RNA: Purine riboswitch aptamer
Organism: Enterococcus lacertideformus
RNA sequence: GACAGCUGAAUAACCUCUACUUAUAUAUCGUCAUAAUAGGGAUGACAGUUUCUAGCCAGUGCCGUAAAUACUGGACUAUAAGUAAAAAGGGGCUUUUU
Numbered sequence: 001g002a003c004a005g006c007u008g009a010a011u012a013a014c015c016u017c018u019a020c021u022u023a024u025a026u027a028u029c030g031u032c033a034u035a036a037u038a039g040g041g042a043u044g045a046c047a048g049u050u051u052c053u054a055g056c057c058a059g060u061g062c063c064g065u066a067a068a069u070a071c072u073g074g075a076c077u078a079u080a081a082g083u084a085a086a087a088a089g090g091g092g093c094u095u096u097u098u
Stems, first nucleotide, its partner, number of pairs: 018084008030046005056074006